[Rfam]
RNA: U4 spliceosomal RNA
Organism: Chlorocebus sabaeus
RNA sequence: AGCUUUGCACAGUGGCAGUACCGUAGCCAGUGAGAUUUAUCCGAGACGUGAUUAUUGCUAAUUGAAACUUUUCCCAAUACCCCACUGUGAUGACUUGAAAUAUAAUCAGCACUGGCAAUUUUUGACAGUCUCUACGGAGA
Dot-bracket structure: ...................(.(((.(.(.....(.......)..).)))).)................................(((((.(((.(........).))).))).)).............((((....))))